[Rfam]
RNA: RT-9 RNA
RNA sequence: GAUUGAUAAGUUUACGGAUUUAUCAACAUGUCCUUGAGUUCAAGGGAGCCUUAAUCCUGCGCUUUAAGCGUAAACACAUGAACAGGC
Numbered sequence: 001g002a003u004u005g006a007u008a009a010g011u012u013u014a015c016g017g018a019u020u021u022a023u024c025a026a027c028a029u030g031u032c033c034u035u036g037a038g039u040u041c042a043a044g045g046g047a048g049c050c051u052u053a054a055u056c057c058u059g060c061g062c063u064u065u066a067a068g069c070g071u072a073a074a075c076a077c078a079u080g081a082a083c084a085g086g087c
Stems, first nucleotide, its partner, number of pairs: 003026010060070004